Source information:
Shown here is a 161-nucleotide RNA sequence, a member of the family "c-di-AMP riboswitch aptamer (ydaO/yuaA leader)".

[Rfam]
RNA sequence: AAUUCGCACCCACCCACUCACGUGUGGCAGGAGCGGGGGAACCAGGUAAGCCGCCGGACCGGAGCGAUCCGGACCGGCUAGGGGUGAAGUCGCCAUCCGGCGGCCGGGCAUCUCCAGCCCGAACCCGACAGCUCACCUCGCAGGCGCCGGAGAGGAACUUC
Numbered sequence: 001a002a003u004u005c006g007c008a009c010c011c012a013c014c015c016a017c018u019c020a021c022g023u024g025u026g027g028c029a030g031g032a033g034c035g036g037g038g039g040a041a042c043c044a045g046g047u048a049a050g051c052c053g054c055c056g057g058a059c060c061g062g063a064g065c066g067a068u069c070c071g072g073a074c075c076g077g078c079u080a081g082g083g084g085u086g087a088a089g090u091c092g093c094c095a096u097c098c099g100g101c102g103g104c105c106g107g108g109c110a111u112c113u114c115c116a117g118c119c120c121g122a123a124c125c126c127g128a129c130a131g132c133u134c135a136c137c138u139c140g141c142a143g144g145c146g147c148c149g150g151a152g153a154g155g156a157a158c159u160u161c
Stems, first nucleotide, its partner, number of pairs: 011146001013144002018032002033141006043081001082126003090103004106120004